[Rfam]
RNA sequence: GUAGAUAAAGCCAAACCAUUUGUGAAAAUGGGACGGAAAGCCACGGGUCUUAGAAAAAUAUAAGAUAGCCGGGUUGCCAGAG
Numbered sequence: 001g002u003a004g005a006u007a008a009a010g011c012c013a014a015a016c017c018a019u020u021u022g023u024g025a026a027a028a029u030g031g032g033a034c035g036g037a038a039a040g041c042c043a044c045g046g047g048u049c050u051u052a053g054a055a056a057a058a059u060a061u062a063a064g065a066u067a068g069c070c071g072g073g074u075u076g077c078c079a080g081a082g
Stems, first nucleotide, its partner, number of pairs: 004078001011036002016031006034068001039075004044071003047066003
The family of this 82-nucleotide sequence from Candidatus Vecturithrix granuli is "c-di-GMP-I-GGC riboswitch aptamer". NCBI's taxonomy places the organism under Bacteria, Candidatus Vecturitrichia, Candidatus Vecturitrichales, Candidatus Vecturitrichaceae, Candidatus Vecturithrix.